[Rfam]
RNA sequence: GCCCUCAUGGCUUAGUGGUACAGCGUCGCACUCGUACACAUGCGUAAUGCGAAGAUCGGCGGUUCGAUUCCGCCUGAGGGCA
Numbered sequence: 001g002c003c004c005u006c007a008u009g010g011c012u013u014a015g016u017g018g019u020a021c022a023g024c025g026u027c028g029c030a031c032u033c034g035u036a037c038a039c040a041u042g043c044g045u046a047a048u049g050c051g052a053a054g055a056u057c058g059g060c061g062g063u064u065c066g067a068u069u070c071c072g073c074c075u076g077a078g079g080g081c082a
Base pairs, nucleotide, nucleotide: 001081002080003079004078005077006076007075010024011023012022026052027051028050029049030048058074059073060072061071062070
RNA: tRNA